[Rfam]
RNA sequence: ACGAGGUUCGAAUCAUGUCCCGUUCUUUCCGUCUACUCGGUCUACUACUAAACGCAUUCAGUUUGCGCGGUAGACUUGUGGGCGGAAUCAAUCACUGAUUCGAACCUGAAGAAGUUUAAGAAACCCGCGCCGAUGCGCGGGUUUUUUU
Numbered sequence: 001a002c003g004a005g006g007u008u009c010g011a012a013u014c015a016u017g018u019c020c021c022g023u024u025c026u027u028u029c030c031g032u033c034u035a036c037u038c039g040g041u042c043u044a045c046u047a048c049u050a051a052a053c054g055c056a057u058u059c060a061g062u063u064u065g066c067g068c069g070g071u072a073g074a075c076u077u078g079u080g081g082g083c084g085g086a087a088u089c090a091a092u093c094a095c096u097g098a099u100u101c102g103a104a105c106c107u108g109a110a111g112a113a114g115u116u117u118a119a120g121a122a123a124c125c126c127g128c129g130c131c132g133a134u135g136c137g138c139g140g141g142u143u144u145u146u147u148u
Stems, first nucleotide, its partner, number of pairs: 004107001006105005012099004016094002029085008045073005053067004120145011
Record summary: A member of the RNA family "Leucine operon leader" from Pantoea vagans, 148 nucleotides long. From the family's description: At least 6 amino acid operons are known to be regulated by attenuation. In each a leader sequence of 150-200 bp is found upstream of the first gene in the operon. This leader sequence can assume two different secondary structures known as the terminator and the anti-terminator structure. In each case the leader also codes for very short peptide sequence that is rich in the end product amino acid of the operon. Lineage of the source: Bacteria > Pseudomonadota > Gammaproteobacteria > Enterobacterales > Pantoea. It scores 104 bits against the family's covariance model. Gene Ontology term of the family: leucine biosynthetic process.